[Rfam]
RNA sequence: GGAAUAUUGAGAAGGGCUGUCCCUAGUACGAGAGGACCGGGACGGACGAACCUCUGGUGUGCCAGUUGUCCUGCCAAGGGCAUGGCUGGUUGGCUACGUUCGGGAGGGAUAACCGCUGAAAGCAUCUAAGCGGGAAGCCUGCUUCGAGAUGAGUAUUCCCACCUCCUUGAGAGGGUAAGGCUCCCAGUAGACGACUGGGUUGAUAGGCCAGAUAUGGAAGCCUGGUAACGGGUGGAGUUGACUGGUACUAAUAGGCCGAGG
Numbered sequence: 001g002g003a004a005u006a007u008u009g010a011g012a013a014g015g016g017c018u019g020u021c022c023c024u025a026g027u028a029c030g031a032g033a034g035g036a037c038c039g040g041g042a043c044g045g046a047c048g049a050a051c052c053u054c055u056g057g058u059g060u061g062c063c064a065g066u067u068g069u070c071c072u073g074c075c076a077a078g079g080g081c082a083u084g085g086c087u088g089g090u091u092g093g094c095u096a097c098g099u100u101c102g103g104g105a106g107g108g109a110u111a112a113c114c115g116c117u118g119a120a121a122g123c124a125u126c127u128a129a130g131c132g133g134g135a136a137g138c139c140u141g142c143u144u145c146g147a148g149a150u151g152a153g154u155a156u157u158c159c160c161a162c163c164u165c166c167u168u169g170a171g172a173g174g175g176u177a178a179g180g181c182u183c184c185c186a187g188u189a190g191a192c193g194a195c196u197g198g199g200u201u202g203a204u205a206g207g208c209c210a211g212a213u214a215u216g217g218a219a220g221c222c223u224g225g226u227a228a229c230g231g232g233u234g235g236a237g238u239u240g241a242c243u244g245g246u247a248c249u250a251a252u253a254g255g256c257c258g259a260g261g
Base pairs, nucleotide, nucleotide: 001159002158003157004156005155006154007153008152011145012144013143014142017045018044019043020042021041022040023039047102048101049100050099051098055096056095057094062089063088064087065086066085067082068081069080070079071078072077106140107139108138113133114132115131116130117129162174163173164172176259179257180256181255182254183199184198185197186196187195204250205249206248207246208245209244210243211242214238220233221232222231223230224229
Dot-bracket structure: ((((((((..((((..(((((((...............))))))).(((((...(((....(((((((((((....))))))..)))))....))).)))))...(((....(((((...........)))))....))).))))......))))))))..(((.......))).(..(((((((((.......)))))....((((((((..(.....(((((....)))))....)...))))).)))...)))).)..

The record is a 261-nucleotide part of an RNA from Streptomyces seoulensis, which matches "Bacterial large subunit ribosomal RNA" in Rfam. The family is grouped with related families in Rfam's "LSU clan". The family's consensus secondary structure is taken from published work. A search with the family's covariance model found it, with a score of 2765 bits. Its family is annotated with ribosome and structural constituent of ribosome in the Gene Ontology.